[Rfam]
RNA sequence: UAAGUGAAUGCUUUGCCACAGUCUUAGAAACUGCAUUAAGCUGGGCUGGGGUUCGCUUAAGC
Numbered sequence: 001u002a003a004g005u006g007a008a009u010g011c012u013u014u015g016c017c018a019c020a021g022u023c024u025u026a027g028a029a030a031c032u033g034c035a036u037u038a039a040g041c042u043g044g045g046c047u048g049g050g051g052u053u054c055g056c057u058u059a060a061g062c
Base pairs, nucleotide, nucleotide: 001059002058003057004056005055006054007053008052009051011050012049013048015046016045017044019043020042021041